A member of the RNA family "Xanthine riboswitch aptamer (NMT1 RNA)" from Cupriavidus agavae, 64 nucleotides long. The match comes from Rfam's covariance-model search (45 bits). On this family, see Yu and Breaker, RNA 2020: "A bacterial riboswitch class senses xanthine and uric acid to regulate genes associated with purine oxidation".
[Rfam]
RNA sequence: CCGAAGAGUAGAAGCGUUCAACCGCCCCUCCCCUGCGAGGCAGCGGCAGGAAAUUGCUCUUGAU
Numbered sequence: 001c002c003g004a005a006g007a008g009u010a011g012a013a014g015c016g017u018u019c020a021a022c023c024g025c026c027c028c029u030c031c032c033c034u035g036c037g038a039g040g041c042a043g044c045g046g047c048a049g050g051a052a053a054u055u056g057c058u059c060u061u062g063a064u
Base pairs, nucleotide, nucleotide: 005060006059007058008057009056010055015049018051019050022046023045024044025043
Dot-bracket structure: ....((((((....[..((..((((.................))))..]))...))))))....